[Rfam]
RNA: MAT2A 3'UTR stem loop E
RNA sequence: CCAGCCUUCUUGGAUAGGCCAAAGUGUCCUACAGAAGAACCUUGGGUUACAUCUACAAGGGGCUCUGA
Numbered sequence: 001c002c003a004g005c006c007u008u009c010u011u012g013g014a015u016a017g018g019c020c021a022a023a024g025u026g027u028c029c030u031a032c033a034g035a036a037g038a039a040c041c042u043u044g045g046g047u048u049a050c051a052u053c054u055a056c057a058a059g060g061g062g063c064u065c066u067g068a
Base pairs, nucleotide, nucleotide: 002067003066004065007062008061009060010059011058015055016054017053018052019045020044021043022042024040025039026032027031